IS605-orfB-I RNA: a 215-nucleotide sequence.

RNA sequence: ACCAUAGACAGAUGUAGAACUGCAAGACAAGUCCGCAUUUCCCUAUAUGGUUAUCAAUUUAGAAGCGAUGCCAAUAAGUGCUAUUGUAUUGGUGUUAUAUCGAAAUAGCAUGAGGUAUGGUGGAUGAGGUUAACCGUAGAACCUUUGGUUGAAAAACCAUAAAACUAAUCUAAGAAUACGACUUCUGAAUUUUCACUAUUUUUAGUUACGGUAGC
Numbered sequence: 001a002c003c004a005u006a007g008a009c010a011g012a013u014g015u016a017g018a019a020c021u022g023c024a025a026g027a028c029a030a031g032u033c034c035g036c037a038u039u040u041c042c043c044u045a046u047a048u049g050g051u052u053a054u055c056a057a058u059u060u061a062g063a064a065g066c067g068a069u070g071c072c073a074a075u076a077a078g079u080g081c082u083a084u085u086g087u088a089u090u091g092g093u094g095u096u097a098u099a100u101c102g103a104a105a106u107a108g109c110a111u112g113a114g115g116u117a118u119g120g121u122g123g124a125u126g127a128g129g130u131u132a133a134c135c136g137u138a139g140a141a142c143c144u145u146u147g148g149u150u151g152a153a154a155a156a157c158c159a160u161a162a163a164a165c166u167a168a169u170c171u172a173a174g175a176a177u178a179c180g181a182c183u184u185c186u187g188a189a190u191u192u193u194c195a196c197u198a199u200u201u202u203u204a205g206u207u208a209c210g211g212u213a214g215c
Stems, first nucleotide, its partner, number of pairs: 001051006008044001010040006017034001019032003022028001065121002068118005079110007091101002094098001127144005133212006139165001146159005170205009180194001
Rfam classes the family as a small RNA.